The record is a 110-nucleotide sequence from Paenibacillus sp. J2TS4, which matches "TPP riboswitch aptamer (THI element)" in Rfam. The family's consensus secondary structure is taken from published work. A search with the family's covariance model found it, with a score of 56 bits. Taxonomically the source falls in Paenibacillus (Bacteria, Bacillota, Caryophanales, Paenibacillaceae).

[Rfam]
RNA sequence: AUUGUAUAUUCGGGGUGCUGGAAUAGGCCGGCUGAGAUUGUAUCCCACAAGAUACUGACCCUUAACCUGAUCUGGGUAAUGCCAGCGGAGGGAAUUCAACGCAUUGUCUA
Numbered sequence: 001a002u003u004g005u006a007u008a009u010u011c012g013g014g015g016u017g018c019u020g021g022a023a024u025a026g027g028c029c030g031g032c033u034g035a036g037a038u039u040g041u042a043u044c045c046c047a048c049a050a051g052a053u054a055c056u057g058a059c060c061c062u063u064a065a066c067c068u069g070a071u072c073u074g075g076g077u078a079a080u081g082c083c084a085g086c087g088g089a090g091g092g093a094a095u096u097c098a099a100c101g102c103a104u105u106g107u108c109u110a
Stems, first nucleotide, its partner, number of pairs: 008096001010094001012061003017032005040055004066091003072085004